The record is an 84-nucleotide sequence from Desulforamulus aquiferis, which matches "c-di-GMP-I riboswitch aptamer" in Rfam.
Its family is annotated with cyclic-di-GMP binding in the Gene Ontology.
Rfam's curators write: GEMM was predicted in a large-scale screen for bacterial structured RNA regulatory elements.
Lineage of the source: Bacteria > Bacillati > Clostridia > Peptococcaceae > Desulforamulus.
RNA sequence: GAAAGAUAAAGGCAAACCCAUUGAAAAGUGGCGACGCAAAACUAUAGGGGCUAAGGUGGAAAGCUAGGCCAGCCAGUUACCAAA
Numbered sequence: 001g002a003a004a005g006a007u008a009a010a011g012g013c014a015a016a017c018c019c020a021u022u023g024a025a026a027a028g029u030g031g032c033g034a035c036g037c038a039a040a041a042c043u044a045u046a047g048g049g050g051c052u053a054a055g056g057u058g059g060a061a062a063g064c065u066a067g068g069c070c071a072g073c074c075a076g077u078u079a080c081c082a083a084a
Stems, first nucleotide, its partner, number of pairs: 012037002018031005040078004047074002049070003056064002